Rfam assigns this 205-nucleotide sequence from Shigella boydii to the family "Gammaproteobacterial sRNA STnc100". The match comes from Rfam's covariance-model search (140 bits). Rfam 15.1 lists 137 matches to the family in 112 species.
[Rfam]
RNA sequence: GUUUGCGGGGAGUUUGUAAAAAGAAACUGGCAUGGUGAAUCCCCCUGUGCGGAGGGGCAAUCAGCAACUGGUGUUUUGUCCCGACCCUUAUCCUUUCUGUGCGGGUUCAGGUGCUGAUACUGAACUCACCGGGAGGCACCCGGCACCAUGCAAUGGCACAUAGCGCCACUCUCCAGCCCCUCUCCGGAGGGGCUUUCUUAUGGAC
Numbered sequence: 001g002u003u004u005g006c007g008g009g010g011a012g013u014u015u016g017u018a019a020a021a022a023g024a025a026a027c028u029g030g031c032a033u034g035g036u037g038a039a040u041c042c043c044c045c046u047g048u049g050c051g052g053a054g055g056g057g058c059a060a061u062c063a064g065c066a067a068c069u070g071g072u073g074u075u076u077u078g079u080c081c082c083g084a085c086c087c088u089u090a091u092c093c094u095u096u097c098u099g100u101g102c103g104g105g106u107u108c109a110g111g112u113g114c115u116g117a118u119a120c121u122g123a124a125c126u127c128a129c130c131g132g133g134a135g136g137c138a139c140c141c142g143g144c145a146c147c148a149u150g151c152a153a154u155g156g157c158a159c160a161u162a163g164c165g166c167c168a169c170u171c172u173c174c175a176g177c178c179c180c181u182c183u184c185c186g187g188a189g190g191g192g193c194u195u196u197c198u199u200a201u202g203g204a205c
Stems, first nucleotide, its partner, number of pairs: 015158002030151008042057005064093001066091001097101001103127004108122003129143005163205001166202001175194007